Small nucleolar RNA SNORD110: a 67-nucleotide sequence from Nannospalax galili. The base pairs follow the family's consensus structure. The match comes from Rfam's covariance-model search (70 bits). By type it is a C/D-box small nucleolar RNA. Lineage of the source: Eukaryota > Craniata > Mammalia > Eutheria > Nannospalax.
RNA sequence: UUGCAAUGAUUUGUGAAUCUGUCAGUCCCCUGAGUAUGAUCACUGAUGUUUCCAUAUCUCUGAGCAA
Numbered sequence: 001u002u003g004c005a006a007u008g009a010u011u012u013g014u015g016a017a018u019c020u021g022u023c024a025g026u027c028c029c030c031u032g033a034g035u036a037u038g039a040u041c042a043c044u045g046a047u048g049u050u051u052c053c054a055u056a057u058c059u060c061u062g063a064g065c066a067a
Stems, first nucleotide, its partner, number of pairs: 001067004